[Rfam]
A member of the RNA family "mir-2968 microRNA precursor family" from Cervus elaphus, 103 nucleotides long. Pairs were carried over by alignment from the consensus structure, which is taken from published work. Lineage of the source: Eukaryota > Teleostomi > Ruminantia > Pecora > Cervus elaphus. Gene Ontology terms of the family: RISC complex and miRNA-mediated post-transcriptional gene silencing. Rfam 15.1 lists 469 matches to the family in 464 species.
RNA sequence: GUGUAUAAGAGACAGGUCCUCCAGGUCGCUCUGGCAGCCCUCGUCGUUGAGCGAGUUCUGCUUGGUGACCUUGGGCGACAGCAGCUUGACCAGGUCGGUGAGC
Number, nucleotide and partner (000 for none) at each position: 001g000002u092003g091004u000005a000006u000007a087008a086009g085010a000011g000012a000013c081014a000015g000016g000017u078018c077019c075020u074021c073022c000023a071024g070025g069026u068027c067028g066029c065030u064031c000032u000033g062034g061035c060036a059037g058038c000039c000040c055041u054042c053043g052044u051045c000046g000047u000048u000049g000050a000051g044052c043053g042054a041055g040056u000057u000058c037059u036060g035061c034062u033063u000064g030065g029066u028067g027068a026069c025070c024071u023072u000073g021074g020075g019076c000077g018078a017079c000080a000081g013082c000083a000084g000085c009086u008087u007088g000089a000090c000091c003092a002093g000094g000095u000096c000097g000098g000099u000100g000101a000102g000103c000